[Rfam]
Overview: This 79-nucleotide sequence from Thelazia callipaeda belongs to the Rfam family "Small nucleolar RNA SNORD53/SNORD92". Clan: SNORD52 clan. The literature on the family includes a 1996 paper in Cell by Kiss-Laszlo et al., "Site-specific ribose methylation of preribosomal RNA: a novel function for small nucleolar RNAs". Lineage of the source: Eukaryota > Bilateria > Ecdysozoa > Thelazioidea > Thelazia.
RNA sequence: AGCCAGUGAUGAUGAUACAAGGAUGGUUUCGCAGUUAUAGCUGAGUUAAUCAUGAGGAAUUCCUUGGCUGUCUGAGGCU
Numbered sequence: 001a002g003c004c005a006g007u008g009a010u011g012a013u014g015a016u017a018c019a020a021g022g023a024u025g026g027u028u029u030c031g032c033a034g035u036u037a038u039a040g041c042u043g044a045g046u047u048a049a050u051c052a053u054g055a056g057g058a059a060u061u062c063c064u065u066g067g068c069u070g071u072c073u074g075a076g077g078c079u
Base pairs, nucleotide, nucleotide: 001079002078003077004076